[Rfam]
RNA sequence: CUAUGGACGUGAGUUCAUGGCGGAAGGAG
Numbered sequence: 001c002u003a004u005g006g007a008c009g010u011g012a013g014u015u016c017a018u019g020g021c022g023g024a025a026g027g028a029g
Stems, first nucleotide, its partner, number of pairs: 001020008
RNA: L31-Firmicutes ribosomal protein leader